[Rfam]
RNA sequence: UUUAGAGGACGAACGGCUAAAUUCGCCACGUCCGCAUGUCUUCGCCGUUCUGACCCACAUCCUGUGGG
Numbered sequence: 001u002u003u004a005g006a007g008g009a010c011g012a013a014c015g016g017c018u019a020a021a022u023u024c025g026c027c028a029c030g031u032c033c034g035c036a037u038g039u040c041u042u043c044g045c046c047g048u049u050c051u052g053a054c055c056c057a058c059a060u061c062c063u064g065u066g067g068g
Stems, first nucleotide, its partner, number of pairs: 011050007025040001027038002054068005